[Rfam]
RNA sequence: CACGUCAGUGUGCUUUCCUGACGUGGCAACAAAUUGCCCCCUCGUGGACGCGAUUUGUUGCCACGUCAGGAAAGCGCGCUAAUGUGG
Numbered sequence: 001c002a003c004g005u006c007a008g009u010g011u012g013c014u015u016u017c018c019u020g021a022c023g024u025g026g027c028a029a030c031a032a033a034u035u036g037c038c039c040c041c042u043c044g045u046g047g048a049c050g051c052g053a054u055u056u057g058u059u060g061c062c063a064c065g066u067c068a069g070g071a072a073a074g075c076g077c078g079c080u081a082a083u084g085u086g087g
Base pairs, nucleotide, nucleotide: 001086002085003084004083005082007080008079009078010077011076012075013074014073015072016071017070018069019068020067021066023064024063025062026061027060028059029058030057031056032055033054034053035052036051037050040047041046
Rfam assigns this 87-nucleotide RNA sequence from Gossypium mustelinum to the family "MIR7486 microRNA precursor family". Pairs were carried over by alignment from the consensus structure, which was predicted with RNAalifold. NCBI's taxonomy places the organism under Eukaryota, Mesangiospermae, malvids, Malvales, Gossypium.